[Rfam]
The record is a 119-nucleotide RNA sequence from Eragrostis curvula, which matches "MIR2275 microRNA precursor family" in Rfam. The family has 13 seed sequences and 785 matches in Rfam 15.1. The organism belongs to Eragrostis, within Eukaryota.
RNA sequence: GCACUGAAAGUGAGAGUUGGAGGAAAACAAACCCACUGAUCAUCAGAUUCUGGAAUGGGUCGAUGGGCAGAAACAAUCACUUGUUGGCUUGUUUUUCUCCAAUAUCUCACCUUCAGUAG
Numbered sequence: 001g002c003a004c005u006g007a008a009a010g011u012g013a014g015a016g017u018u019g020g021a022g023g024a025a026a027a028c029a030a031a032c033c034c035a036c037u038g039a040u041c042a043u044c045a046g047a048u049u050c051u052g053g054a055a056u057g058g059g060u061c062g063a064u065g066g067g068c069a070g071a072a073a074c075a076a077u078c079a080c081u082u083g084u085u086g087g088c089u090u091g092u093u094u095u096u097c098u099c100c101a102a103u104a105u106c107u108c109a110c111c112u113u114c115a116g117u118a119g
Stems, first nucleotide, its partner, number of pairs: 004116005011109004016103006023096008032087002
The base pairs follow the family's consensus structure, which was predicted with RNAalifold.